Shown here is a 68-nucleotide RNA sequence from Paenimyroides marinum, a member of the family "DUF805 RNA". It is annotated as a cis-regulatory element. A search with the family's covariance model found it, with a score of 72 bits. Lineage of the source: Bacteria > Bacteroidota > Flavobacteriia > Flavobacteriales > Paenimyroides.

[Rfam]
RNA sequence: CGCAAAUGGAGGUCAGUAACCAUUAAAAAAACGGAGCGAUACCGAAAAGCUAUACGAGUAGGGUUUUA
Number, nucleotide and partner (000 for none) at each position: 001c000002g000003c000004a000005a000006a023007u022008g021009g020010a000011g000012g000013u000014c000015a000016g000017u000018a000019a000020c009021c008022a007023u006024u000025a000026a000027a000028a000029a000030a000031a000032c000033g000034g000035a051036g050037c049038g000039a000040u000041a000042c062043c061044g000045a000046a000047a000048a000049g037050c036051u035052a000053u000054a000055c000056g000057a000058g000059u000060a000061g043062g042063g000064u000065u000066u000067u000068a000